[Rfam]
RNA sequence: CCCCGGUCGUUGGGAGAGGGCACCUCCCUAUCAGCGAGAUGCCGCCGAAGGCGCAACCCCCAGGAACCGCUCAGGCAAAAGGGCCAACGACGCAGC
Numbered sequence: 001c002c003c004c005g006g007u008c009g010u011u012g013g014g015a016g017a018g019g020g021c022a023c024c025u026c027c028c029u030a031u032c033a034g035c036g037a038g039a040u041g042c043c044g045c046c047g048a049a050g051g052c053g054c055a056a057c058c059c060c061c062a063g064g065a066a067c068c069g070c071u072c073a074g075g076c077a078a079a080a081g082g083g084c085c086a087a088c089g090a091c092g093c094a095g096c
Base pairs, nucleotide, nucleotide: 006091007090008089009088010087011086012085013084020042021041022040044076045075046074047072048071051070052069053068057064058063
RNA: Glycine riboswitch aptamer
Organism: Denitratisoma oestradiolicum